[Rfam]
RNA sequence: CAGAAAGAGAGGGAUUCGAAUCCUCGGUAUGAAAAACUCGUGCAACGGAUUAG
Numbered sequence: 001c002a003g004a005a006a007g008a009g010a011g012g013g014a015u016u017c018g019a020a021u022c023c024u025c026g027g028u029a030u031g032a033a034a035a036a037c038u039c040g041u042g043c044a045a046c047g048g049a050u051u052a053g
Stems, first nucleotide, its partner, number of pairs: 009025005027043006
The family of this 53-nucleotide sequence from Ziziphus jujuba is "Plastid-psbl-rps4 3UTR RNA". Rfam 15.1 lists 1,631 matches to the family in 422 species. Plastid psbl-rps4-psbC is a non-coding RNA (ncRNA) present in plastids. It is compose of two short stem-loops in tandem in the terminal 3 prime untranslate region (3UTR) mostly in psbl and rps4 seed plants genes. A search with the family's covariance model found it, with a score of 68 bits. The base pairs follow the family's consensus structure, which was predicted with LocARNA.